RNA sequence: CUGGCUCUGGUUCACGUUCGCGCCGCGAACGACCCAGCGGCC
Numbered sequence: 001c002u003g004g005c006u007c008u009g010g011u012u013c014a015c016g017u018u019c020g021c022g023c024c025g026c027g028a029a030c031g032a033c034c035c036a037g038c039g040g041c042c
Stems, first nucleotide, its partner, number of pairs: 003042003007037004015031007
Source information: The family of this 42-nucleotide sequence from Nocardioides marmorisolisilvae is "L31-Actinobacteria ribosomal protein leader". The base pairs follow the family's consensus structure, which is taken from published work.